[Rfam]
RNA sequence: GGUGUGGGCUAUGACUCGCAUUCAAAGCGACGAACGAAUUCCUGUAAUUCCGAGUGCUUUGGGGAAAGUCCCCGGACUUCAGGCAAAGAGUGUCACCGAUUAUAAUCUCUUUAGCCUUAAGACGGUUACUCUAGGCUGAGAAGGGCUGAGCCCUGAGCUGUAACUGUUGAUAGGCUUUCAUGUCCGACUGUAUAGAUAAUGCGAGUGACAUAUCCCGAUAUGUUAACCGAAUGGGGCUUACAGUAGACCCAAAC
Numbered sequence: 001g002g003u004g005u006g007g008g009c010u011a012u013g014a015c016u017c018g019c020a021u022u023c024a025a026a027g028c029g030a031c032g033a034a035c036g037a038a039u040u041c042c043u044g045u046a047a048u049u050c051c052g053a054g055u056g057c058u059u060u061g062g063g064g065a066a067a068g069u070c071c072c073c074g075g076a077c078u079u080c081a082g083g084c085a086a087a088g089a090g091u092g093u094c095a096c097c098g099a100u101u102a103u104a105a106u107c108u109c110u111u112u113a114g115c116c117u118u119a120a121g122a123c124g125g126u127u128a129c130u131c132u133a134g135g136c137u138g139a140g141a142a143g144g145g146c147u148g149a150g151c152c153c154u155g156a157g158c159u160g161u162a163a164c165u166g167u168u169g170a171u172a173g174g175c176u177u178u179c180a181u182g183u184c185c186g187a188c189u190g191u192a193u194a195g196a197u198a199a200u201g202c203g204a205g206u207g208a209c210a211u212a213u214c215c216c217g218a219u220a221u222g223u224u225a226a227c228c229g230a231a232u233g234g235g236g237c238u239u240a241c242a243g244u245a246g247a248c249c250c251a252a253a254c
Stems, first nucleotide, its partner, number of pairs: 002254002005251004009246003014206006022062007036050005066239003070236004082094004095110001098107003113176002115173001118170001120168001122167004134159003143153004208223006